[Rfam]
A member of the RNA family "Glycine riboswitch aptamer" from Firmicutes bacterium CAG:114, 80 nucleotides long. The pairing is the family consensus, mapped onto this sequence. Its family is annotated with glycine biosynthetic process in the Gene Ontology. A search with the family's covariance model found it, with a score of 58 bits.

RNA sequence: AUGAUGAAACCGGGAGAUGCCGUGCAAGCGGAGCCGAAGGGGCAGCGGAAACUCUCAGGCAAAAGGACCGGUUUUUGACG
Numbered sequence: 001a002u003g004a005u006g007a008a009a010c011c012g013g014g015a016g017a018u019g020c021c022g023u024g025c026a027a028g029c030g031g032a033g034c035c036g037a038a039g040g041g042g043c044a045g046c047g048g049a050a051a052c053u054c055u056c057a058g059g060c061a062a063a064a065g066g067a068c069c070g071g072u073u074u075u076u077g078a079c080g
Base pairs, nucleotide, nucleotide: 006075007074008073009072010071011070012069013068020031021030022029023028033060034059035058036056037055040054041053042052